[Rfam]
RNA sequence: AAAAAGUGGAGUUCAGAAACCACUAUAAUCAACGAGGCCGAACCGAAAAGCCAGAAGAGUAGGAAAAUU
Numbered sequence: 001a002a003a004a005a006g007u008g009g010a011g012u013u014c015a016g017a018a019a020c021c022a023c024u025a026u027a028a029u030c031a032a033c034g035a036g037g038c039c040g041a042a043c044c045g046a047a048a049a050g051c052c053a054g055a056a057g058a059g060u061a062g063g064a065a066a067a068u069u
Base pairs, nucleotide, nucleotide: 006023007022008021009020036052037051038050043063044062
About this RNA: The record is a 69-nucleotide RNA from Flavobacterium aciduliphilum, which matches "DUF805 RNA" in Rfam. Pairs were carried over by alignment from the consensus structure, which is taken from published work. It is annotated as a cis-regulatory element.